[Rfam]
RNA sequence: UGUGGUGCCAGGACUUAGCCCGCGUGUGAACACUGUGUCCUCUCCCUGUUCACAGUGGUUAAGUUCUGCCCCCCCU
Numbered sequence: 001u002g003u004g005g006u007g008c009c010a011g012g013a014c015u016u017a018g019c020c021c022g023c024g025u026g027u028g029a030a031c032a033c034u035g036u037g038u039c040c041u042c043u044c045c046c047u048g049u050u051c052a053c054a055g056u057g058g059u060u061a062a063g064u065u066c067u068g069c070c071c072c073c074c075c076u
Stems, first nucleotide, its partner, number of pairs: 011066010026053007
mir-27 microRNA precursor family: a 76-nucleotide RNA from Conger conger. The family's consensus secondary structure was predicted with RNAalifold. The match comes from Rfam's covariance-model search (61 bits). Taxonomically the source falls in Conger (Eukaryota, Eumetazoa, Deuterostomia, Elopomorpha). Gene Ontology terms of the family: RISC complex and miRNA-mediated post-transcriptional gene silencing.